The record is a 122-nucleotide RNA sequence from Gossypium laxum, which matches "MIR7504 microRNA precursor family" in Rfam. NCBI's taxonomy places the organism under Eukaryota, Tracheophyta, Spermatophyta, Malvales, Gossypium.
RNA sequence: AAUAGGAGCAUGACAAAUCAGAUUUUUCUUCCUGAUUUUCAGCUUUUUUCUCCUGAAAAAUUCAAAACCGACUAAAAAUGUUUAAAAUCAGAAGGAAAAAUCUGAUUUGUAAUGCUCCUAUU
Number, nucleotide and partner (000 for none) at each position: 001a122002a121003u120004a119005g118006g117007a116008g115009c114010a113011u112012g000013a110014c109015a108016a107017a106018u105019c104020a103021g102022a101023u100024u099025u098026u097027u096028c000029u094030u093031c000032c091033u090034g089035a088036u087037u086038u085039u084040c000041a082042g081043c000044u000045u078046u077047u076048u075049u000050c000051u000052c000053c000054u000055g000056a000057a000058a000059a000060a000061u000062u000063c000064a000065a000066a000067a000068c000069c000070g000071a000072c000073u000074a000075a048076a047077a046078a045079u000080g000081u042082u041083u000084a039085a038086a037087a036088u035089c034090a033091g032092a000093a030094g029095g000096a027097a026098a025099a024100a023101u022102c021103u020104g019105a018106u017107u016108u015109g014110u013111a000112a011113u010114g009115c008116u007117c006118c005119u004120a003121u002122u001